This 182-nucleotide sequence from an Anaerolineales bacterium belongs to the Rfam family "FMN riboswitch aptamer (RFN element)". Lineage of the source: Bacteria > Bacillati > Chloroflexota > Anaerolineae > Anaerolineales. The RFN element is a highly conserved domain that is found frequently in the 5'-untranslated regions of prokaryotic mRNAs that encode for flavin mononucleotide (FMN) biosynthesis and transport proteins. The family has 146 seed sequences and 6,230 matches in Rfam 15.1.
RNA sequence: AUAAACCUUCGGGGCAGGGUGACAUGGCGCUGUGGCGCUAUGAAUUCCCGAUCGGUGGUAAAGCCCACGAGCCUCUUUGGGCAGUGACAAUUUCCCCUUUGGGAAAUGGGUACCGCAAAAAGCGGGCAUGACUCGGCGUAAUUCCGAGGCCGACAGUAUAGUCUGGAUAAAAGAAGGUGAUC
Numbered sequence: 001a002u003a004a005a006c007c008u009u010c011g012g013g014g015c016a017g018g019g020u021g022a023c024a025u026g027g028c029g030c031u032g033u034g035g036c037g038c039u040a041u042g043a044a045u046u047c048c049c050g051a052u053c054g055g056u057g058g059u060a061a062a063g064c065c066c067a068c069g070a071g072c073c074u075c076u077u078u079g080g081g082c083a084g085u086g087a088c089a090a091u092u093u094c095c096c097c098u099u100u101g102g103g104a105a106a107u108g109g110g111u112a113c114c115g116c117a118a119a120a121a122g123c124g125g126g127c128a129u130g131a132c133u134c135g136g137c138g139u140a141a142u143u144c145c146g147a148g149g150c151c152g153a154c155a156g157u158a159u160a161g162u163c164u165g166g167a168u169a170a171a172a173g174a175a176g177g178u179g180a181u182c
Stems, first nucleotide, its partner, number of pairs: 005178006017049003051162002053152002055068004063150002073126003132148005154165003